[Rfam]
RNA sequence: GGGGAUGAUCGGUUUCGACAUCGCCUGCGAAACCGCGAGAAGCGGGCCGAGGAUGCAGGGUUAUCUCGUAAACGAUCUCUGCGAAACAAUAACUGCCAAUAAGAAGCAGAUCGACUUCGCUCUCGCUGCGUAAGCAGUAGAGCCACAAGUCCGUCAGUCCGGGUUCGUUCCCGCCCCGGUCACUGGCGUCAUUUAGGGGACUUGCUGCGCACCGGCGCCUGAACGGUGCGUGGGACUUCUUCAGGCUGGGCCCGUCGACUCAGAUGCCUGUCGCAAGAGUCGGGGCCGACGAGAACGCUUGACAGGAUGCGCCCGGAGAAGGCGUGGAAUCACAGCGAUGGACGGGGGUUCGAUUCCCCCCAUCUCCACCC
Numbered sequence: 001g002g003g004g005a006u007g008a009u010c011g012g013u014u015u016c017g018a019c020a021u022c023g024c025c026u027g028c029g030a031a032a033c034c035g036c037g038a039g040a041a042g043c044g045g046g047c048c049g050a051g052g053a054u055g056c057a058g059g060g061u062u063a064u065c066u067c068g069u070a071a072a073c074g075a076u077c078u079c080u081g082c083g084a085a086a087c088a089a090u091a092a093c094u095g096c097c098a099a100u101a102a103g104a105a106g107c108a109g110a111u112c113g114a115c116u117u118c119g120c121u122c123u124c125g126c127u128g129c130g131u132a133a134g135c136a137g138u139a140g141a142g143c144c145a146c147a148a149g150u151c152c153g154u155c156a157g158u159c160c161g162g163g164u165u166c167g168u169u170c171c172c173g174c175c176c177c178g179g180u181c182a183c184u185g186g187c188g189u190c191a192u193u194u195a196g197g198g199g200a201c202u203u204g205c206u207g208c209g210c211a212c213c214g215g216c217g218c219c220u221g222a223a224c225g226g227u228g229c230g231u232g233g234g235a236c237u238u239c240u241u242c243a244g245g246c247u248g249g250g251c252c253c254g255u256c257g258a259c260u261c262a263g264a265u266g267c268c269u270g271u272c273g274c275a276a277g278a279g280u281c282g283g284g285g286c287c288g289a290c291g292a293g294a295a296c297g298c299u300u301g302a303c304a305g306g307a308u309g310c311g312c313c314c315g316g317a318g319a320a321g322g323c324g325u326g327g328a329a330u331c332a333c334a335g336c337g338a339u340g341g342a343c344g345g346g347g348g349u350u351c352g353a354u355u356c357c358c359c360c361c362a363u364c365u366c367c368a369c370c371c
Base pairs, nucleotide, nucleotide: 001367002366003365004364005363006362007361019340020339021338022337023336025335026334027333033327034326035325036324037323043315044314045313046312047311048068049067050066051065052064054083055082056081057080058079059078060077121141122140123139125138126137127136128135129134152188153187154186155185156184157183159179160178161176162175163174164173167201168200169199170198171197172196205233206232207231208230209229210228211227212226213225217246218245219244220243221242249287250286251285252284253283256282257281258280268306269305270303271302272301344360345359346358347357348356
Annotation
A member of the RNA family "transfer-messenger RNA" from Agromyces protaetiae, 371 nucleotides long. Pairs were carried over by alignment from the consensus structure, which is taken from published work. Bacterial tmRNA, also known as 10Sa RNA or SsrA, is named for its dual tRNA and mRNA-like properties. Its role is to liberate the mRNA from a stalled ribosome. To accomplish this part of the tmRNA is used as a reading frame that ends in a translation stop signal. The organism belongs to Agromyces, within Bacteria.